[Rfam]
RNA sequence: AGUUAAACAACAGAAUAUGAUCGUAUAACGCUGGGAAUAAGGCCUGGAAGUCUCUACCGAAACACCGUAAAUGUUUCGACUACGAUUCAAAAUAGAAAUGUA
Numbered sequence: 001a002g003u004u005a006a007a008c009a010a011c012a013g014a015a016u017a018u019g020a021u022c023g024u025a026u027a028a029c030g031c032u033g034g035g036a037a038u039a040a041g042g043c044c045u046g047g048a049a050g051u052c053u054c055u056a057c058c059g060a061a062a063c064a065c066c067g068u069a070a071a072u073g074u075u076u077c078g079a080c081u082a083c084g085a086u087u088c089a090a091a092a093u094a095g096a097a098a099u100g101u102a
Stems, first nucleotide, its partner, number of pairs: 019087007031047005058078007